[Rfam]
RNA: c-di-GMP-I riboswitch aptamer
Organism: Calorimonas adulescens
RNA sequence: UAGAGAGAAAGGCAAACUUAUCGAAAGAUAAGGGCGCAAAGCCACAGGGUCUAAGGUGAUUGCAUUCACUAUGACAGCCUGGUUGCCGUU
Numbered sequence: 001u002a003g004a005g006a007g008a009a010a011g012g013c014a015a016a017c018u019u020a021u022c023g024a025a026a027g028a029u030a031a032g033g034g035c036g037c038a039a040a041g042c043c044a045c046a047g048g049g050u051c052u053a054a055g056g057u058g059a060u061u062g063c064a065u066u067c068a069c070u071a072u073g074a075c076a077g078c079c080u081g082g083u084u085g086c087c088g089u090u
Stems, first nucleotide, its partner, number of pairs: 012037002017032006040084004046080003049075003056069004